[Rfam]
RNA: Streptomyces-metH RNA
RNA sequence: GUGUCCGCCCUCCGGAAUGGUCCGGGCCGCACGGCCCCGGCCCGAUACCCUGGCGGGGUGCGUCCCCGCACCGGGCGCAUAGCCGACAGCCGUCGCAUCCAGGGAGCUUCCCGUAUG
Numbered sequence: 001g002u003g004u005c006c007g008c009c010c011u012c013c014g015g016a017a018u019g020g021u022c023c024g025g026g027c028c029g030c031a032c033g034g035c036c037c038c039g040g041c042c043c044g045a046u047a048c049c050c051u052g053g054c055g056g057g058g059u060g061c062g063u064c065c066c067c068g069c070a071c072c073g074g075g076c077g078c079a080u081a082g083c084c085g086a087c088a089g090c091c092g093u094c095g096c097a098u099c100c101a102g103g104g105a106g107c108u109u110c111c112c113g114u115a116u117g
Stems, first nucleotide, its partner, number of pairs: 059079007082096002085094003